[Rfam]
RNA sequence: AUAGGUCGGUCGUAGUAACCCCAUUGGGUGAAAUCAGUACCUUUUGCAGAGGGAGGACUUGUACCCUGCCUAUGGGCUAAAACUUCCGGGCACAUCGUUUGAAAUGCGCCCUCCCCGAAAGGGGGCACUCCGAUGUAAUCAGCCGGACGCUUCUUGCAUGGUGAGUGAUGUAUGGUAACUCAUUUCAUGGCUGGUAUUACUACGCAGUUAGAACCCAUACCCAACAAUCAUACUGUACGGAGGGAAAUCUUUUUCAUGACCAG
Numbered sequence: 001a002u003a004g005g006u007c008g009g010u011c012g013u014a015g016u017a018a019c020c021c022c023a024u025u026g027g028g029u030g031a032a033a034u035c036a037g038u039a040c041c042u043u044u045u046g047c048a049g050a051g052g053g054a055g056g057a058c059u060u061g062u063a064c065c066c067u068g069c070c071u072a073u074g075g076g077c078u079a080a081a082a083c084u085u086c087c088g089g090g091c092a093c094a095u096c097g098u099u100u101g102a103a104a105u106g107c108g109c110c111c112u113c114c115c116c117g118a119a120a121g122g123g124g125g126c127a128c129u130c131c132g133a134u135g136u137a138a139u140c141a142g143c144c145g146g147a148c149g150c151u152u153c154u155u156g157c158a159u160g161g162u163g164a165g166u167g168a169u170g171u172a173u174g175g176u177a178a179c180u181c182a183u184u185u186c187a188u189g190g191c192u193g194g195u196a197u198u199a200c201u202a203c204g205c206a207g208u209u210a211g212a213a214c215c216c217a218u219a220c221c222c223a224a225c226a227a228u229c230a231u232a233c234u235g236u237a238c239g240g241a242g243g244g245a246a247a248u249c250u251u252u253u254u255c256a257u258g259a260c261c262a263g
Stems, first nucleotide, its partner, number of pairs: 004041002019028002096108003128242005134237001135200005140193005149157002160184007204236005211222001